[Rfam]
RNA sequence: CUGGUUCCGGUUCACGCUGCUCCGCACGGCGCGGAGGCGACCCGGCGACU
Numbered sequence: 001c002u003g004g005u006u007c008c009g010g011u012u013c014a015c016g017c018u019g020c021u022c023c024g025c026a027c028g029g030c031g032c033g034g035a036g037g038c039g040a041c042c043c044g045g046c047g048a049c050u
Stems, first nucleotide, its partner, number of pairs: 003050003007045004015039003020036006
RNA: L31-Actinobacteria ribosomal protein leader